The family of this 176-nucleotide sequence from Trogon melanurus is "mraW RNA".
RNA sequence: CGGGAUCACCUCUCUAUGGUUUCUGUCCGGGAGGGGCGGGCCCCGGCGUUGCCAUGGCGAUGAGGGCGGGGUGAGCAAAAUGGCGGCCGCCAUUUUGCUCACCCCGCCCUCAUCGCCAUGGCAACGCCGGGGCCCGCCCCUCCCGGACAGAAACCAUAGAGAGGUGAUCCCGCCGA
Numbered sequence: 001c002g003g004g005a006u007c008a009c010c011u012c013u014c015u016a017u018g019g020u021u022u023c024u025g026u027c028c029g030g031g032a033g034g035g036g037c038g039g040g041c042c043c044c045g046g047c048g049u050u051g052c053c054a055u056g057g058c059g060a061u062g063a064g065g066g067c068g069g070g071g072u073g074a075g076c077a078a079a080a081u082g083g084c085g086g087c088c089g090c091c092a093u094u095u096u097g098c099u100c101a102c103c104c105c106g107c108c109c110u111c112a113u114c115g116c117c118a119u120g121g122c123a124a125c126g127c128c129g130g131g132g133c134c135c136g137c138c139c140c141u142c143c144c145g146g147a148c149a150g151a152a153a154c155c156a157u158a159g160a161g162a163g164g165u166g167a168u169c170c171c172g173c174c175g176a
Stems, first nucleotide, its partner, number of pairs: 010163007018155002021152014037136048
Background
NCBI's taxonomy places the organism under Eukaryota, Chordata, Craniata, Aves, Trogon. Rfam classes the family as a cis-regulatory element.